[Rfam]
RNA sequence: GAAUAACAUUAUUUUGCUAUUUUCGGCCAAUAACACAAUGAUACGUGAAAAAAUUAUCCCACCUGUCAUUACGUUAUUGACCGAGAAUAGCAAAAAGUGUUAUAUCA
Dot-bracket structure: ..(((......(((((((((.(((((.(((((((..(((((((.(((..(......)..))).)))))))..))))))).))))).))))))))).......)))..